Annotation
pemK RNA: a 58-nucleotide RNA from Candidatus Colimorpha enterica. The match comes from Rfam's covariance-model search (62 bits). Rfam classes the family as a cis-regulatory element. The base pairs follow the family's consensus structure, which is taken from published work.
RNA sequence: UUAAUGAUACUUCUCUACGGAGGCGGCGGAGGACCCGGCGCGGGUGAGAUUCCCAUGG
Numbered sequence: 001u002u003a004a005u006g007a008u009a010c011u012u013c014u015c016u017a018c019g020g021a022g023g024c025g026g027c028g029g030a031g032g033a034c035c036c037g038g039c040g041c042g043g044g045u046g047a048g049a050u051u052c053c054c055a056u057g058g
Stems, first nucleotide, its partner, number of pairs: 012055001013022003023041003027037003042054003